The family of this 178-nucleotide sequence from Alicyclobacillus acidoterrestris is "FMN riboswitch aptamer (RFN element)".

RNA sequence: UCGUUCCUUCGGGGCAGGGUGAGGCGUUAGCCAAUUCCCGAUCGGUGGUGACAUGGCAAUAUCCAUGAAGUCCACGAGCCGACAGGUAUGUUGCAGUCAUAUGGCUGCGCAGCCCACAAUGGCAUGAACUGGUGAGAUUCCAGUACCGACGGUAUAGUCCGGAUGAAAGAAGGAGAAC
Numbered sequence: 001u002c003g004u005u006c007c008u009u010c011g012g013g014g015c016a017g018g019g020u021g022a023g024g025c026g027u028u029a030g031c032c033a034a035u036u037c038c039c040g041a042u043c044g045g046u047g048g049u050g051a052c053a054u055g056g057c058a059a060u061a062u063c064c065a066u067g068a069a070g071u072c073c074a075c076g077a078g079c080c081g082a083c084a085g086g087u088a089u090g091u092u093g094c095a096g097u098c099a100u101a102u103g104g105c106u107g108c109g110c111a112g113c114c115c116a117c118a119a120u121g122g123c124a125u126g127a128a129c130u131g132g133u134g135a136g137a138u139u140c141c142a143g144u145a146c147c148g149a150c151g152g153u154a155u156a157g158u159c160c161g162g163a164u165g166a167a168a169g170a171a172g173g174a175g176a177a178c
Base pairs, nucleotide, nucleotide: 004175005174006173007172008171009170010169017039018038019037041158042157043148044147045075046074047073048072070146071145080122128144129143130142131141132140150161151160152159
Dot-bracket structure: ...(((((((......(((.................))).[[((((((.....................[[))))....(.........................................).....(((((.......)))))]])).(((....]]))).......)))))))...
Lineage of the source: Bacteria > Bacillati > Bacilli > Alicyclobacillaceae > Alicyclobacillus. Pairs were carried over by alignment from the consensus structure, which is taken from published work.